A member of the RNA family "Ribosomal protein L10 leader" from Robertmurraya siralis, 151 nucleotides long. The source organism's lineage runs through Bacteria, Bacillati, Bacillota, Caryophanales and Robertmurraya. About the family: This family is a putative r-protein leader autoregulatory structure found in B. subtilis and other low-GC Gram-positive bacteria. It is located in the 5' untranslated regions of mRNAs encoding ribosomal proteins L10 and L12 (rplJ-rplL). By type it is a cis-regulatory leader. Pairs were carried over by alignment from the consensus structure, which was predicted with CMfinder.

RNA sequence: AAAUAAAUAACAUUUGUACCGCAGACAGUAGGGGCCUUUCGGCUUAAAUUUUCCCUACCGAGGUCAUACGAUAGAUGAAUGAAUUAGUUGUACUGCGACUAUUGUAUACUUCCUCCAUGUCUGUUUGAUGUGGAGGUUUUUAUUUUAUUUA
Numbered sequence: 001a002a003a004u005a006a007a008u009a010a011c012a013u014u015u016g017u018a019c020c021g022c023a024g025a026c027a028g029u030a031g032g033g034g035c036c037u038u039u040c041g042g043c044u045u046a047a048a049u050u051u052u053c054c055c056u057a058c059c060g061a062g063g064u065c066a067u068a069c070g071a072u073a074g075a076u077g078a079a080u081g082a083a084u085u086a087g088u089u090g091u092a093c094u095g096c097g098a099c100u101a102u103u104g105u106a107u108a109c110u111u112c113c114u115c116c117a118u119g120u121c122u123g124u125u126u127g128a129u130g131u132g133g134a135g136g137u138u139u140u141u142a143u144u145u146u147a148u149u150u151a
Stems, first nucleotide, its partner, number of pairs: 028058006034043003112136010
Dot-bracket structure: ...........................(((((((((....))).........)))))).....................................................((((((((((.....))))))))))...............